[Rfam]
Nucleotides: 153
Stems, first nucleotide, its partner, number of pairs: 007038002009035001011033003014029001046102005060095004077088003104115001106113002116147006123141006
Number, partner (000 for none) and nucleotide at each position: 001000a002000u003000g004000a005000g006000u007038g008037c009035c010000u011033g012032u013031u014029c015000a016000u017000c018000u019000a020000a021000u022000u023000u024000u025000u026000c027000g028000c029014g030000c031013a032012g033011u034000u035009g036000c037008g038007c039000u040000g041000c042000a043000g044000a045000u046102c047101g048100c049099g050098u051000c052000u053000u054000u055000g056000u057000c058000g059000u060095c061094g062093c063092u064000g065000a066000c067000g068000g069000c070000a071000c072000g073000g074000c075000a076000a077088u078087g079086a080000g081000g082000c083000g084000a085000g086079u087078c088077a089000u090000c091000a092063g093062g094061c095060g096000u097000g098050a099049u100048g101047c102046g103000a104115u105000c106113a107112c108000c109000c110000u111000a112107g113106u114000c115104g116147a117146g118145c119144c120143g121142c122000u123141u124140g125139c126138c127137c128136c129000g130000u131000u132000u133000g134000u135000c136128g137127g138126g139125g140124c141123g142121g143120c144119g145118g146117c147116u148000u149000u150000u151000u152000u153000a